[Rfam]
RNA: Small nucleolar RNA SNORA53
RNA sequence: GAGACGCACCCUUAGAUCCGCCUCUGGGGAAACGUUCCCUCCGCCGCAAGCCGCCGGUGUCUCCCUGGCAACCACGGGGCUCCGGCGAAGGGUCUCCCAGCAACUCGUUGGUUGUUCAGUCAGAGGUGCUUGAGUCAUUGGUGUAUGAGAGCAGUCUUAUCUGCAUGCCCUGGCCUGUAAUAAGACAUGCCCAUUGCAGCCAGGCUGGCCUGCAUACACA
Number, nucleotide and partner (000 for none) at each position: 001g000002a146003g000004a144005c143006g142007c141008a000009c000010c000011c134012u133013u132014a131015g130016a000017u000018c000019c128020g127021c126022c125023u124024c123025u122026g121027g098028g097029g096030a095031a000032a093033c000034g000035u000036u000037c092038c091039c090040u089041c000042c000043g086044c085045c084046g083047c000048a000049a000050g000051c079052c078053g000054c076055c000056g000057g073058u000059g072060u071061c067062u000063c000064c000065c000066u000067g061068g000069c000070a000071a060072c059073c057074a000075c000076g054077g000078g052079g051080c000081u000082c000083c046084g045085g044086c043087g000088a000089a040090g039091g038092g037093u032094c000095u030096c029097c028098c027099a000100g115101c114102a113103a112104c111105u110106c000107g000108u000109u000110g105111g104112u103113u102114g101115u100116u000117c000118a000119g000120u000121c026122a025123g024124a023125g022126g021127u020128g019129c000130u015131u014132g013133a012134g011135u000136c000137a000138u000139u000140g000141g007142u006143g005144u004145a000146u002147g000148a000149g000150a000151g000152c000153a000154g000155u000156c000157u000158u000159a000160u000161c000162u214163g213164c212165a211166u000167g000168c208169c000170c000171u000172g206173g205174c204175c203176u202177g201178u000179a000180a000181u000182a000183a000184g000185a000186c000187a000188u000189g000190c000191c000192c000193a000194u000195u000196g000197c000198a000199g000200c000201c177202a176203g175204g174205c173206u172207g000208g168209c000210c000211u165212g164213c163214a162215u000216a000217c000218a000219c000220a000